[Rfam]
RNA sequence: GCUUGAGUGACGAUUUCAUCAUUGUCGGAUACCCCUUCACUCUCUCCAUGAGUGAGAAAACCUAACUGACAAGC
Dot-bracket structure: (((((................................................................)))))
Numbered sequence: 001g002c003u004u005g006a007g008u009g010a011c012g013a014u015u016u017c018a019u020c021a022u023u024g025u026c027g028g029a030u031a032c033c034c035c036u037u038c039a040c041u042c043u044c045u046c047c048a049u050g051a052g053u054g055a056g057a058a059a060a061c062c063u064a065a066c067u068g069a070c071a072a073g074c
Stems, first nucleotide, its partner, number of pairs: 001074005

A member of the RNA family "Small nucleolar RNA SNORD101" from Aquarana catesbeiana, 74 nucleotides long.
The family is grouped with related families in Rfam's "SNORD101 clan".
The match comes from Rfam's covariance-model search (68 bits).
Lineage of the source: Eukaryota > Chordata > Craniata > Teleostomi > Aquarana.
The base pairs follow the family's consensus structure, which was predicted with PFOLD.
The family has 26 seed sequences and 658 matches in Rfam 15.1.
Its family is annotated with RNA processing and nucleolus in the Gene Ontology.